[Rfam]
RNA: MIR1887 microRNA precursor family
Organism: Arabidopsis thaliana
RNA sequence: UUGUUCACUUAGAUUGUUCUUAGUAUGAGGUGUUCUCGUACUAAGUAGAGUCUAAGAGAACAA
Dot-bracket structure: .(((((.((((((((.(.(((((((((((.....))))))))))).).)))))))).))))).